[Rfam]
RNA sequence: GAUAUGCGAUGAAGCGGGAGGUUGCGACCAUAGGGUCGGUUUUUCCGUGGAGUAUGUCCGAUUUUUAAACCGGGCG
Number, nucleotide and partner (000 for none) at each position: 001g000002a000003u000004a000005u000006g000007c000008g000009a000010u000011g000012a000013a000014g048015c047016g046017g000018g045019a044020g043021g041022u000023u000024g000025c038026g037027a036028c035029c034030a000031u000032a000033g000034g029035g028036u027037c026038g025039g000040u000041u021042u000043u020044u019045c018046c016047g015048u014049g000050g000051a000052g000053u000054a000055u076056g075057u074058c073059c072060g071061a000062u000063u000064u000065u000066u000067a000068a000069a000070c000071c060072g059073g058074g057075c056076g055
RNA: S10-Clostridia ribosomal protein leader